[Rfam]
RNA sequence: UCGCACUACGCUGAAGAGGCUGCUUCAAUAUUCUUAAAAACAAUAUUUGAAUGGAGUAGUCUCUGAGCGAUUGUGCGGAAAUGAAAUGCCGAGUUAAGCUCGGCGGCGGCCAGACAACCGUUGAGAUGGAUCCACAGAUAAGCGCCGCCAUUUCCACGGUGCUUGUCUACUAAAUCCGUCUCAAAUUC
Numbered sequence: 001u002c003g004c005a006c007u008a009c010g011c012u013g014a015a016g017a018g019g020c021u022g023c024u025u026c027a028a029u030a031u032u033c034u035u036a037a038a039a040a041c042a043a044u045a046u047u048u049g050a051a052u053g054g055a056g057u058a059g060u061c062u063c064u065g066a067g068c069g070a071u072u073g074u075g076c077g078g079a080a081a082u083g084a085a086a087u088g089c090c091g092a093g094u095u096a097a098g099c100u101c102g103g104c105g106g107c108g109g110c111c112a113g114a115c116a117a118c119c120g121u122u123g124a125g126a127u128g129g130a131u132c133c134a135c136a137g138a139u140a141a142g143c144g145c146c147g148c149c150a151u152u153u154c155c156a157c158g159g160u161g162c163u164u165g166u167c168u169a170c171u172a173a174a175u176c177c178g179u180c181u182c183a184a185a186u187u188c
Base pairs, nucleotide, nucleotide: 002077003076004075005074006073009069010068011067015064016063017062018061019060020059021058022057023056024055025054026053027052123182124181125180126179127178128177129176130175140164141163142162143161144160145159146158147157
RNA: small nucleolar RNA snoR143